[Rfam]
RNA: RT-2 RNA
RNA sequence: GGUUAAUAAUAACUAGAACUUCUAAAUUAGCUGAUGGGAGCUACCGGACGCUUCUUGCAUGGUACUUUAUGUAUUUCAUGGUAGAUCUCUCUGUUCACAGCACCUAAUUUUCUAGUUAAAAAUAAAUUAUGAACAGCAAAGAAAGACAUGAAGCUAGAUAU
Numbered sequence: 001g002g003u004u005a006a007u008a009a010u011a012a013c014u015a016g017a018a019c020u021u022c023u024a025a026a027u028u029a030g031c032u033g034a035u036g037g038g039a040g041c042u043a044c045c046g047g048a049c050g051c052u053u054c055u056u057g058c059a060u061g062g063u064a065c066u067u068u069a070u071g072u073a074u075u076u077c078a079u080g081g082u083a084g085a086u087c088u089c090u091c092u093g094u095u096c097a098c099a100g101c102a103c104c105u106a107a108u109u110u111u112c113u114a115g116u117u118a119a120a121a122a123u124a125a126a127u128u129a130u131g132a133a134c135a136g137c138a139a140a141g142a143a144a145g146a147c148a149u150g151a152a153g154c155u156a157g158a159u160a161u
Stems, first nucleotide, its partner, number of pairs: 001014004027140002030137004035133001036091005041084005050058002061075005095132003099128001102113001